[Rfam]
RNA sequence: GCAUGGCUGAAUACUGUGUUCCUUCAUCAGUAGUCUACACAGCCAGACACCAUGCAAAAGUAAAGUCUUCCUUUAGAAAUUAUUUUGAUAUGCCGAGUUUUUCCUUAGCAUAUCAUCAUUGAAAGUGAAUACACGU
Number, nucleotide and partner (000 for none) at each position: 001g055002c054003a053004u052005g051006g050007c000008u000009g000010a000011a000012u000013a000014c042015u041016g040017u039018g038019u037020u000021c000022c000023u000024u000025c000026a000027u000028c000029a000030g000031u000032a000033g000034u000035c000036u000037a019038c018039a017040c016041a015042g014043c000044c000045a000046g000047a000048c000049a000050c006051c005052a004053u003054g002055c001056a000057a000058a000059a000060g000061u000062a000063a000064a000065g000066u000067c000068u129069u128070c127071c125072u124073u123074u122075a120076g119077a000078a000079a000080u000081u000082a000083u118084u000085u000086u115087g114088a113089u112090a111091u110092g109093c108094c000095g106096a000097g000098u000099u000100u000101u000102u000103c000104c000105u000106u095107a000108g093109c092110a091111u090112a089113u088114c087115a086116u000117c000118a083119u076120u075121g000122a074123a073124a072125g071126u000127g070128a069129a068130u000131a000132c000133a000134c000135g000136u000
Overview
Small nucleolar RNA SNORA15: a 136-nucleotide sequence from Ochotona princeps. Rfam links the family to the GO terms RNA processing and nucleolus. From the family's description: ACA15 is a member of the H/ACA class of snoRNA that guide the sites of modification of uridines to pseudouridines. The literature on the family includes a 2001 paper in EMBO J by Huttenhofer et al., "RNomics: an experimental approach that identifies 201 candidates for novel, small, non-messenger RNAs in mouse". Rfam classes the family as an H/ACA-box small nucleolar RNA.